[Rfam]
RNA: SAM riboswitch aptamer (S box leader)
RNA sequence: CUCUUAUCAAGAGUGGUGGAGGGAAUAGGCCCUGCGAAGCCCAGCAACCUGAAAGCAAACCUUGUUUGCUUCCGAUGGUGCUAAAUCCUACAGAUCAUCUUGGAUCUGGAAGAUAAGAG
Numbered sequence: 001c002u003c004u005u006a007u008c009a010a011g012a013g014u015g016g017u018g019g020a021g022g023g024a025a026u027a028g029g030c031c032c033u034g035c036g037a038a039g040c041c042c043a044g045c046a047a048c049c050u051g052a053a054a055g056c057a058a059a060c061c062u063u064g065u066u067u068g069c070u071u072c073c074g075a076u077g078g079u080g081c082u083a084a085a086u087c088c089u090a091c092a093g094a095u096c097a098u099c100u101u102g103g104a105u106c107u108g109g110a111a112g113a114u115a116a117g118a119g
Stems, first nucleotide, its partner, number of pairs: 001119008013042001015041003021032003026090004043082004048078002050074002053071006086111001091108006